The family of this 81-nucleotide sequence from Megalops atlanticus is "Small nucleolar RNA SNORD111". Taxonomically the source falls in Megalops (Eukaryota, Opisthokonta, Metazoa, Vertebrata). A search with the family's covariance model found it, with a score of 46 bits.
[Rfam]
RNA sequence: GCUGCAGAAGUGAUGAGUGUUUUCAUGUCUCUUCUCUGACUGAUCUUCCCUGGAGAGAGUGUGUAUCCCUCUGAUCUCAGC
Numbered sequence: 001g002c003u004g005c006a007g008a009a010g011u012g013a014u015g016a017g018u019g020u021u022u023u024c025a026u027g028u029c030u031c032u033u034c035u036c037u038g039a040c041u042g043a044u045c046u047u048c049c050c051u052g053g054a055g056a057g058a059g060u061g062u063g064u065a066u067c068c069c070u071c072u073g074a075u076c077u078c079a080g081c
Stems, first nucleotide, its partner, number of pairs: 001081004
Dot-bracket structure: ((((.........................................................................))))